[Rfam]
RNA: Small nucleolar RNA SNORD75
RNA sequence: AGCCUGUUAUGGUUUAACAGUAGUGACAGAAGGAACUUCUGAAAUUCUAUUCUAAGGCU
Numbered sequence: 001a002g003c004c005u006g007u008u009a010u011g012g013u014u015u016a017a018c019a020g021u022a023g024u025g026a027c028a029g030a031a032g033g034a035a036c037u038u039c040u041g042a043a044a045u046u047c048u049a050u051u052c053u054a055a056g057g058c059u
Base pairs, nucleotide, nucleotide: 001059002058003057004056